The family of this 115-nucleotide RNA from Raineya orbicola is "SAM riboswitch aptamer (S box leader)". It scores 87 bits against the family's covariance model. The SAM riboswitch is found upstream of a number of genes which code for proteins involved in methionine or cysteine biosynthesis in Gram-positive bacteria.

RNA sequence: CACUUAUCCAGAAAGCCGGAGACACGGGGUCUAUGAAGGCUUGGCAACCCUUCCUUAUUUUUGGAAACGGUGCCAACUCCCGCCCAAAGCAAUCUGCUUAUGGGAAAGAUAAGUG
Numbered sequence: 001c002a003c004u005u006a007u008c009c010a011g012a013a014a015g016c017c018g019g020a021g022a023c024a025c026g027g028g029g030u031c032u033a034u035g036a037a038g039g040c041u042u043g044g045c046a047a048c049c050c051u052u053c054c055u056u057a058u059u060u061u062u063g064g065a066a067a068c069g070g071u072g073c074c075a076a077c078u079c080c081c082g083c084c085c086a087a088a089g090c091a092a093u094c095u096g097c098u099u100a101u102g103g104g105a106a107a108g109a110u111a112a113g114u115g
Base pairs, nucleotide, nucleotide: 001115002114003113004112005111006110007109008108013042014041015040016039017038021031022030023029025082026081027080028079043074044073045072046071048070049069051066052065053064054063078107083104084103085102086101088099